[Rfam]
RNA sequence: GCUGGUGCCGGUGAUGACCGUUUUUUCCCCGUCAGAGCGACGGUGCUGAUUCUCACUGCUCAAGCCAGGUGGUGUCUGAGGGACCAGC
Numbered sequence: 001g002c003u004g005g006u007g008c009c010g011g012u013g014a015u016g017a018c019c020g021u022u023u024u025u026u027c028c029c030c031g032u033c034a035g036a037g038c039g040a041c042g043g044u045g046c047u048g049a050u051u052c053u054c055a056c057u058g059c060u061c062a063a064g065c066c067a068g069g070u071g072g073u074g075u076c077u078g079a080g081g082g083a084c085c086a087g088c
Base pairs, nucleotide, nucleotide: 001088002087003086004085005084006083008081009080
RNA: Small nucleolar SNORD12/SNORD106
Organism: Trogon melanurus